[Rfam]
RNA sequence: CCCCCAAGGGGAAGCGAAGACCCUAUAGAGCUUUACUGCAGGCUGUCGCUGAGACGUGGUCGCUACUGUGCAGCAUAGGUAGGAGGCGUUACAGAGGUACCCGCGCUAGCGGGCCACCCAGCCAUCAUUGAAAUACUACCCGGUAGUGACUGCGACUCUCACUCCUGGCGGAGGACACCGGUAGCCGGGCAGUUUGACUGGGGCGGUACGCGCUCGAAAAGAUAUCGAGCGCGCCCGAAGAUCUCCUCACCCGGGUCGGGAAUCCGGGGAAGAGCGCAAGAGCACACGGAGGUCUGACAGUGUCAUUCCCAACGAGUGACGCUGACGCGAAAGCGUGGUCUAGCGAACCUACGAGGCUCCGGAAUGGGGCCCGUAGAUGACAGAAAAGCUACCUUAGGGAUAACAGAGUCGUCACCCGCAAGAGCACAUAUCGACCGGGUGGCUUGCUACCUCGAUGUCGGUUCCCUCCAUCCUGCCCGUGCAGAAGCGGGCAAGGGUGAGGUUGUUCGCCUAUUAAAGGAGGUCGUGAGCUGGGUUUAGACCGUCGUGAGACAGGUCGGCUGCUAUCUAUUGGGGGUGUGA
Numbered sequence: 001c002c003c004c005c006a007a008g009g010g011g012a013a014g015c016g017a018a019g020a021c022c023c024u025a026u027a028g029a030g031c032u033u034u035a036c037u038g039c040a041g042g043c044u045g046u047c048g049c050u051g052a053g054a055c056g057u058g059g060u061c062g063c064u065a066c067u068g069u070g071c072a073g074c075a076u077a078g079g080u081a082g083g084a085g086g087c088g089u090u091a092c093a094g095a096g097g098u099a100c101c102c103g104c105g106c107u108a109g110c111g112g113g114c115c116a117c118c119c120a121g122c123c124a125u126c127a128u129u130g131a132a133a134u135a136c137u138a139c140c141c142g143g144u145a146g147u148g149a150c151u152g153c154g155a156c157u158c159u160c161a162c163u164c165c166u167g168g169c170g171g172a173g174g175a176c177a178c179c180g181g182u183a184g185c186c187g188g189g190c191a192g193u194u195u196g197a198c199u200g201g202g203g204c205g206g207u208a209c210g211c212g213c214u215c216g217a218a219a220a221g222a223u224a225u226c227g228a229g230c231g232c233g234c235c236c237g238a239a240g241a242u243c244u245c246c247u248c249a250c251c252c253g254g255g256u257c258g259g260g261a262a263u264c265c266g267g268g269g270a271a272g273a274g275c276g277c278a279a280g281a282g283c284a285c286a287c288g289g290a291g292g293u294c295u296g297a298c299a300g301u302g303u304c305a306u307u308c309c310c311a312a313c314g315a316g317u318g319a320c321g322c323u324g325a326c327g328c329g330a331a332a333g334c335g336u337g338g339u340c341u342a343g344c345g346a347a348c349c350u351a352c353g354a355g356g357c358u359c360c361g362g363a364a365u366g367g368g369g370c371c372c373g374u375a376g377a378u379g380a381c382a383g384a385a386a387a388g389c390u391a392c393c394u395u396a397g398g399g400a401u402a403a404c405a406g407a408g409u410c411g412u413c414a415c416c417c418g419c420a421a422g423a424g425c426a427c428a429u430a431u432c433g434a435c436c437g438g439g440u441g442g443c444u445u446g447c448u449a450c451c452u453c454g455a456u457g458u459c460g461g462u463u464c465c466c467u468c469c470a471u472c473c474u475g476c477c478c479g480u481g482c483a484g485a486a487g488c489g490g491g492c493a494a495g496g497g498u499g500a501g502g503u504u505g506u507u508c509g510c511c512u513a514u515u516a517a518a519g520g521a522g523g524u525c526g527u528g529a530g531c532u533g534g535g536u537u538u539a540g541a542c543c544g545u546c547g548u549g550a551g552a553c554a555g556g557u558c559g560g561c562u563g564c565u566a567u568c569u570a571u572u573g574g575g576g577g578u579g580u581g582a
Base pairs, nucleotide, nucleotide: 001577002576003575004574005573006572007571010569011568012567014564015563022398023397024396025395027394028393029390030389031388032387033386035193036192037191038190042185043184044183045182046181047180048179051158052157053156055154056153057152058151059150060149061148062147063146064145065144066143067142068141078140079139080138081137082136085123086122087121100113101112102111103110104109162173163172164171165170196209197207198206199205210232211231212230213229214228215227235338236337241293242292243291244290245289246288247273248272250268251267252266253265254264255263274283275282298324299323300322301321302320303319304318305317306316326335328333349376350375351374352373353372355371356370357369358368359367407448408447409446411445412442413441414440415439416438417437418436422432423431459534460532461531462530463529464526465523466522467521468520469519472497473496476491477490478489479488480487500512501511502510503509540558541557542556543555544553545552546551
Shown here is a 582-nucleotide part of an RNA from Halopenitus malekzadehii, a member of the family "Archaeal large subunit ribosomal RNA".
Its family is annotated with ribosome and structural constituent of ribosome in the Gene Ontology.
The source organism's lineage runs through Archaea, Methanobacteriati, Halobacteria, Halobacteriales and Halopenitus.
Clan: LSU clan.